[Rfam]
RNA sequence: AGCACGUGCCUUUCAGGCAUCCUCUCCUAAACCUUUCAAGGCCGACCCUCGGGUCGGCCCUUUUUUUUGUCCGGC
Numbered sequence: 001a002g003c004a005c006g007u008g009c010c011u012u013u014c015a016g017g018c019a020u021c022c023u024c025u026c027c028u029a030a031a032c033c034u035u036u037c038a039a040g041g042c043c044g045a046c047c048c049u050c051g052g053g054u055c056g057g058c059c060c061u062u063u064u065u066u067u068u069g070u071c072c073g074g075c
Stems, first nucleotide, its partner, number of pairs: 008018004040059008
Rfam assigns this 75-nucleotide RNA from Sphingomonas desiccabilis to the family "Makes More Granules Regulator RNA (mmgR)". Its Rfam clan is "suhB sRNA clan". It scores 53 bits against the family's covariance model. The source organism's lineage runs through Bacteria, Pseudomonadati, Pseudomonadota, Sphingomonadales and Sphingomonas.